[Rfam]
RNA: SAM riboswitch aptamer (S box leader)
RNA sequence: UUCUUAUCCAGAGAGGUGGAGGGACUGGCCCUACGAUACCUCAGCAACGGGUUUUUUAAUACCGUGCUAACUCCAGCAAGCCUAUAAGGGCUUGGAAGAUGAGAA
Numbered sequence: 001u002u003c004u005u006a007u008c009c010a011g012a013g014a015g016g017u018g019g020a021g022g023g024a025c026u027g028g029c030c031c032u033a034c035g036a037u038a039c040c041u042c043a044g045c046a047a048c049g050g051g052u053u054u055u056u057u058a059a060u061a062c063c064g065u066g067c068u069a070a071c072u073c074c075a076g077c078a079a080g081c082c083u084a085u086a087a088g089g090g091c092u093u094g095g096a097a098g099a100u101g102a103g104a105a
Base pairs, nucleotide, nucleotide: 001105002104003103004102005101006100007099008098013042014041015040016039017038021031022030023029025076026075027074028073043068044067045066046065048064049063050060052058072097077094078093079092080091081090082089